About this RNA: This 322-nucleotide RNA from Hypocryptadius cinnamomeus belongs to the Rfam family "7SK RNA". For this family Rfam cites "Transcription: surprising role for an elusive small nuclear RNA" (Blencowe, Curr Biol, 2002). The base pairs follow the family's consensus structure, which is taken from published work. It is annotated as a non-coding RNA gene. Rfam's curators write: 7SK was discovered as an abundant small nuclear RNA in the mid-70s but a possible function has only recently been suggested.

[Rfam]
RNA sequence: GAGGGAGGGUAACCUGGCUGUGAGAUCUGAUGUGCCACUGAUUGCAUGGGUUGAUCUGACUGAUGUGGCUAGCUUAGGCAGGUGUUCCCUUUUUUCCUCGACAUUCCACGUGCGUUCCUCUUAAUGAUGUCUGCUUGGUUAAUGACUAGAGCCUCCCCAACAGACAUGGUAUUGUCCGAAGGGGUGUGGUAGCUGUGCUCCCCUGCUGGAAGCUCUAAGUAAGCUGAAGGUCCAUUUGUAGAUAAAUGUAGGGUAAUCAAGCAUCGAAUACUGACAAUACAUUCAAACGAGAAGCUGCACACACCAGUCUGCCAGUGGCUUU
Numbered sequence: 001g002a003g004g005g006a007g008g009g010u011a012a013c014c015u016g017g018c019u020g021u022g023a024g025a026u027c028u029g030a031u032g033u034g035c036c037a038c039u040g041a042u043u044g045c046a047u048g049g050g051u052u053g054a055u056c057u058g059a060c061u062g063a064u065g066u067g068g069c070u071a072g073c074u075u076a077g078g079c080a081g082g083u084g085u086u087c088c089c090u091u092u093u094u095u096c097c098u099c100g101a102c103a104u105u106c107c108a109c110g111u112g113c114g115u116u117c118c119u120c121u122u123a124a125u126g127a128u129g130u131c132u133g134c135u136u137g138g139u140u141a142a143u144g145a146c147u148a149g150a151g152c153c154u155c156c157c158c159a160a161c162a163g164a165c166a167u168g169g170u171a172u173u174g175u176c177c178g179a180a181g182g183g184g185u186g187u188g189g190u191a192g193c194u195g196u197g198c199u200c201c202c203c204u205g206c207u208g209g210a211a212g213c214u215c216u217a218a219g220u221a222a223g224c225u226g227a228a229g230g231u232c233c234a235u236u237u238g239u240a241g242a243u244a245a246a247u248g249u250a251g252g253g254u255a256a257u258c259a260a261g262c263a264u265c266g267a268a269u270a271c272u273g274a275c276a277a278u279a280c281a282u283u284c285a286a287a288c289g290a291g292a293a294g295c296u297g298c299a300c301a302c303a304c305c306a307g308u309c310u311g312c313c314a315g316u317g318g319c320u321u322u
Stems, first nucleotide, its partner, number of pairs: 001106002005099005011092002016089002022086002025083005031077001033072001035068003041064003044060001115169002119164002121138004126134001139160002148154001192262003199255001201253006214242003219239005285322003291313001294308004